[Rfam]
RNA sequence: GUAUGACUGAUUUCUUUUGGUGUUCAGAGUGGACUUGAGUUUUCUAGCACCAUUUGAAAUCGGUUCUGC
Numbered sequence: 001g002u003a004u005g006a007c008u009g010a011u012u013u014c015u016u017u018u019g020g021u022g023u024u025c026a027g028a029g030u031g032g033a034c035u036u037g038a039g040u041u042u043u044c045u046a047g048c049a050c051c052a053u054u055u056g057a058a059a060u061c062g063g064u065u066c067u068g069c
Stems, first nucleotide, its partner, number of pairs: 001069003005064001007063008018052005026045003
A member of the RNA family "mir-29 microRNA precursor family" from Hemibagrus wyckioides, 69 nucleotides long.
The family's consensus secondary structure was predicted with PFOLD.
Rfam links the family to the GO terms gene silencing by miRNA and RISC complex.